[Rfam]
Description
The family of this 88-nucleotide sequence from Gallibacterium salpingitidis is "t44 RNA". A search with the family's covariance model found it, with a score of 62 bits. Lineage of the source: Bacteria > Pseudomonadati > Pseudomonadota > Gammaproteobacteria > Gallibacterium.
RNA sequence: AAGGUAAAUUUAUUAUUUCACACACAUAUCUACACUAACAAUCGGGGUGCCAAACGGUCGAUUGUCUAGGGAUAUGUGGAGGCUAAAC
Numbered sequence: 001a002a003g004g005u006a007a008a009u010u011u012a013u014u015a016u017u018u019c020a021c022a023c024a025c026a027u028a029u030c031u032a033c034a035c036u037a038a039c040a041a042u043c044g045g046g047g048u049g050c051c052a053a054a055c056g057g058u059c060g061a062u063u064g065u066c067u068a069g070g071g072a073u074a075u076g077u078g079g080a081g082g083c084u085a086a087a088c
Stems, first nucleotide, its partner, number of pairs: 023078008035069003039064006049058003
Source information:
The family's RNA type in Rfam is small RNA.